A member of the RNA family "Bacterial RNase P class A" from Anaeromassilibacillus sp. An250, 346 nucleotides long.
RNA sequence: CGAGCAGGCUGAACAGCUGCGGGUGAUACCCGAAAGGGUCCACCCGAGGAAAGUCCGAGCUCCAAAGGGCAAGAAUAACGGCUAACGGCCGCCGGGGGCGACCCUAGGGAAAGUGCAACAGAGAUAUACCGCCGCUUUUGCGGCAAGGGUGGAAAGGCGAGGUAAGAGCUCACCAGCGCGCAGGAGACUGCGCGGCUCUGCAAACCCUAUUCGGAGCAACACCGUGGAGGGACAUAUGCGCCGGCCCGGCGCGUCCUGUGGAGGUGGCAUCGAGCUGGCGCGGCAACGCCCAGCCAAGAUAGAUGGCUGUUCACGACAGAACUCGGCUUACAGGCCUGGUCGCACU
Numbered sequence: 001c002g003a004g005c006a007g008g009c010u011g012a013a014c015a016g017c018u019g020c021g022g023g024u025g026a027u028a029c030c031c032g033a034a035a036g037g038g039u040c041c042a043c044c045c046g047a048g049g050a051a052a053g054u055c056c057g058a059g060c061u062c063c064a065a066a067g068g069g070c071a072a073g074a075a076u077a078a079c080g081g082c083u084a085a086c087g088g089c090c091g092c093c094g095g096g097g098g099c100g101a102c103c104c105u106a107g108g109g110a111a112a113g114u115g116c117a118a119c120a121g122a123g124a125u126a127u128a129c130c131g132c133c134g135c136u137u138u139u140g141c142g143g144c145a146a147g148g149g150u151g152g153a154a155a156g157g158c159g160a161g162g163u164a165a166g167a168g169c170u171c172a173c174c175a176g177c178g179c180g181c182a183g184g185a186g187a188c189u190g191c192g193c194g195g196c197u198c199u200g201c202a203a204a205c206c207c208u209a210u211u212c213g214g215a216g217c218a219a220c221a222c223c224g225u226g227g228a229g230g231g232a233c234a235u236a237u238g239c240g241c242c243g244g245c246c247c248g249g250c251g252c253g254u255c256c257u258g259u260g261g262a263g264g265u266g267g268c269a270u271c272g273a274g275c276u277g278g279c280g281c282g283g284c285a286a287c288g289c290c291c292a293g294c295c296a297a298g299a300u301a302g303a304u305g306g307c308u309g310u311u312c313a314c315g316a317c318a319g320a321a322c323u324c325g326g327c328u329u330a331c332a333g334g335c336c337u338g339g340u341c342g343c344a345c346u
Stems, first nucleotide, its partner, number of pairs: 001342003005338006011331001012311007020046006051329003055326005060216004068247002073212005079091004093107001094105004108207002113205002115201003129148002131144005156174002159171003176196001177194007220266004230255001232254001238252005274294005280289003
A search with the family's covariance model found it, with a score of 259 bits. It is annotated as a ribozyme.